S10-Clostridia ribosomal protein leader: an 82-nucleotide RNA sequence. A reference for the family is Eckert and Weinberg (2020), "Discovery of 20 novel ribosomal leader candidates in bacteria and archaea", BMC Microbiol. The family's consensus secondary structure is taken from published work. Rfam classes the family as a cis-regulatory leader. It is one of the family's seed sequences.
RNA sequence: UGAUAGCUAUGAAGUUUGAAGUUACUGUCCAUGAGACAGAGAAUUCGGCGGAGCGAAUGUCAAGUUAGGAAACUGACGGCAA
Numbered sequence: 001u002g003a004u005a006g007c008u009a010u011g012a013a014g015u016u017u018g019a020a021g022u023u024a025c026u027g028u029c030c031a032u033g034a035g036a037c038a039g040a041g042a043a044u045u046c047g048g049c050g051g052a053g054c055g056a057a058u059g060u061c062a063a064g065u066u067a068g069g070a071a072a073c074u075g076a077c078g079g080c081a082a
Base pairs, nucleotide, nucleotide: 014049015048016047018046019045020044025039026038027037028036029035058081059080060079061078064077065076066075067074
Dot-bracket structure: .............(((.(((....(((((.....)))))....))))))........((((..((((......)))))))).